Notes
This 103-nucleotide RNA from Merluccius polli belongs to the Rfam family "Vault RNA". For this family Rfam cites "Evolution of Vault RNAs" (Stadler et al., Mol Biol Evol, 2009).

RNA sequence: GCGCUGGUUUAGCUCAGUGGUUACUUCCUACAACCAAUCUAUCAGAUUCGACUGUAUGUCUCCCCUCCCGGGGAUCGAACCACGGGCGCUGUCCAGCGUUUUU
Dot-bracket structure: .((((((....((((.((((....(((.................................................))))))))))).....)))))).....
Overview
This family of RNAs are found as part of the enigmatic vault ribonucleoprotein complex. The complex consists of a major vault protein (MVP), two minor vault proteins (VPARP and TEP1), and several small untranslated RNA molecules. It has been suggested that the vault complex is involved in drug resistance. It is annotated as a non-coding RNA gene.